The family of this 367-nucleotide RNA from Actinoplanes sp. SE50/110 is "Bacterial RNase P class A". Lineage of the source: Bacteria > Actinomycetes > Micromonosporales > Micromonosporaceae > Actinoplanes.

RNA sequence: ACGGAUGGCCAGGCAAUCGCGUCACCCGGGGAGGGUGCCGAGGAACGUCCGGGCUCCACAGGGCAGGGCGGUUGCUAACGGCAACCCGGCGAGAGCCGCGAGCCAGUGCAACAGAGAGCAGACCGCCGCUCGGGCUCCGGCCCGGGCGGUAAGGAUGAAACGGUGCGGCAAGAGCGCACCAGCGGUCCCGGUGACGGGCCGGCUAUGUAAACCUCGCCCCGGACAAGUCCAAACGCGCGCGGCCGGCCCGGCCGAUGCGCGCGGGUAGGACGCUAGAUCCGGCCGGUGACGGCCGGACGAGAUGGAUGGUCGCCACCGCGGGCGUCAGCUCGCGGGACAGAACCCGGCGUAUCGGUUCUCCUCACUC
Numbered sequence: 001a002c003g004g005a006u007g008g009c010c011a012g013g014c015a016a017u018c019g020c021g022u023c024a025c026c027c028g029g030g031g032a033g034g035g036u037g038c039c040g041a042g043g044a045a046c047g048u049c050c051g052g053g054c055u056c057c058a059c060a061g062g063g064c065a066g067g068g069c070g071g072u073u074g075c076u077a078a079c080g081g082c083a084a085c086c087c088g089g090c091g092a093g094a095g096c097c098g099c100g101a102g103c104c105a106g107u108g109c110a111a112c113a114g115a116g117a118g119c120a121g122a123c124c125g126c127c128g129c130u131c132g133g134g135c136u137c138c139g140g141c142c143c144g145g146g147c148g149g150u151a152a153g154g155a156u157g158a159a160a161c162g163g164u165g166c167g168g169c170a171a172g173a174g175c176g177c178a179c180c181a182g183c184g185g186u187c188c189c190g191g192u193g194a195c196g197g198g199c200c201g202g203c204u205a206u207g208u209a210a211a212c213c214u215c216g217c218c219c220c221g222g223a224c225a226a227g228u229c230c231a232a233a234c235g236c237g238c239g240c241g242g243c244c245g246g247c248c249c250g251g252c253c254g255a256u257g258c259g260c261g262c263g264g265g266u267a268g269g270a271c272g273c274u275a276g277a278u279c280c281g282g283c284c285g286g287u288g289a290c291g292g293c294c295g296g297a298c299g300a301g302a303u304g305g306a307u308g309g310u311c312g313c314c315a316c317c318g319c320g321g322g323c324g325u326c327a328g329c330u331c332g333c334g335g336g337a338c339a340g341a342a343c344c345c346g347g348c349g350u351a352u353c354g355g356u357u358c359u360c361c362u363c364a365c366u367c
Stems, first nucleotide, its partner, number of pairs: 003361003007357004011352001012314003016310003020040002023037005045350003049347005055222002061249004066219005071085005086100001087098004101214002106212002108208003123154002125150011162180006182203001183201003187198004227271004235262005240254005278297008
Dot-bracket structure: ..(((.((((([[[.[[[.((.(((((.....))))).))....(((.(((((.((....[[[[.((((((((((.....)))))(((((....)))).)((...(((((............(((((((((((((....)))))))))))..)).......((((((.......)))))).((((.((((....))))))).)..)))..))))))))).))....((((....((((((((((.]]]])))))...))))).....))))......((((((((....))))))))..........]]].]]]............................)))))))).).)))).)))......